RNA: RT-18 RNA
RNA sequence: CGCCUCUUGGCGAAAAUUAAGUCGCAGCAGGGUGGGGUUAGUAAAGAAUUGAAAGCCCUCAAGACAAUAAGAAA
Numbered sequence: 001c002g003c004c005u006c007u008u009g010g011c012g013a014a015a016a017u018u019a020a021g022u023c024g025c026a027g028c029a030g031g032g033u034g035g036g037g038u039u040a041g042u043a044a045a046g047a048a049u050u051g052a053a054a055g056c057c058c059u060c061a062a063g064a065c066a067a068u069a070a071g072a073a074a
Base pairs, nucleotide, nucleotide: 001012002011003010004009021065022064023063033061034060035058036057037056038055044050045049